A member of the RNA family "U2 spliceosomal RNA" from Dictyostelium purpureum, 213 nucleotides long.
Gene Ontology terms of the family: U2 snRNP, pre-mRNA branch point binding and mRNA branch site recognition.
Taxonomically the source falls in Dictyostelium (Eukaryota, Amoebozoa, Eumycetozoa, Dictyostelia).
It is annotated as a spliceosomal small nuclear RNA.

RNA sequence: UCUUCUUAAAAGCCCUGGCUUUGAUCAUGUGUAGUAUCUGUUCUAGAAAGCUUAAUCUCUUUCUGAUAUCCCAAGAGGAUGUCAUUAUUCGAUUAAACUAAUUUAUUUAUAGAGGGUAAGGGAACAUUUAUAAUUAGUGCAAGUCAUUAAUUGGUUUUCUUCAUACAUUUGCUCUGUAUUGCACCAAAUCAGAGAUUUUAAAGUGUACCUCUU
Numbered sequence: 001u002c003u004u005c006u007u008a009a010a011a012g013c014c015c016u017g018g019c020u021u022u023g024a025u026c027a028u029g030u031g032u033a034g035u036a037u038c039u040g041u042u043c044u045a046g047a048a049a050g051c052u053u054a055a056u057c058u059c060u061u062u063c064u065g066a067u068a069u070c071c072c073a074a075g076a077g078g079a080u081g082u083c084a085u086u087a088u089u090c091g092a093u094u095a096a097a098c099u100a101a102u103u104u105a106u107u108u109a110u111a112g113a114g115g116g117u118a119a120g121g122g123a124a125c126a127u128u129u130a131u132a133a134u135u136a137g138u139g140c141a142a143g144u145c146a147u148u149a150a151u152u153g154g155u156u157u158u159c160u161u162c163a164u165a166c167a168u169u170u171g172c173u174c175u176g177u178a179u180u181g182c183a184c185c186a187a188a189u190c191a192g193a194g195a196u197u198u199u200a201a202a203g204u205g206u207a208c209c210u211c212u213u
Base pairs, nucleotide, nucleotide: 004024005023011020012019013018045064046063047062048061049060050059066082067081068080069079070078071077114162115161116160118158119157120156121155165206166205167204168203169202170201172194173193174192175191176190